[Rfam]
RNA sequence: AACUCCCGCGCGGGAGAGACCGCCGGACCAACAGUCGGGCGGCGCCGAAGGGGCAAAUCCUCCCCGGAACCUCUCAGGCAUCAGGGACCGCGCACGGGUA
Numbered sequence: 001a002a003c004u005c006c007c008g009c010g011c012g013g014g015a016g017a018g019a020c021c022g023c024c025g026g027a028c029c030a031a032c033a034g035u036c037g038g039g040c041g042g043c044g045c046c047g048a049a050g051g052g053g054c055a056a057a058u059c060c061u062c063c064c065c066g067g068a069a070c071c072u073c074u075c076a077g078g079c080a081u082c083a084g085g086g087a088c089c090g091c092g093c094a095c096g097g098g099u100a
Base pairs, nucleotide, nucleotide: 008093009092010091011090012089013088020042021041022040023039044079045078046077047075048074051073052072053071058066
Overview
Shown here is a 100-nucleotide RNA sequence from a Micromonosporaceae bacterium, a member of the family "Glycine riboswitch aptamer". The organism belongs to Micromonosporaceae, within Bacteria.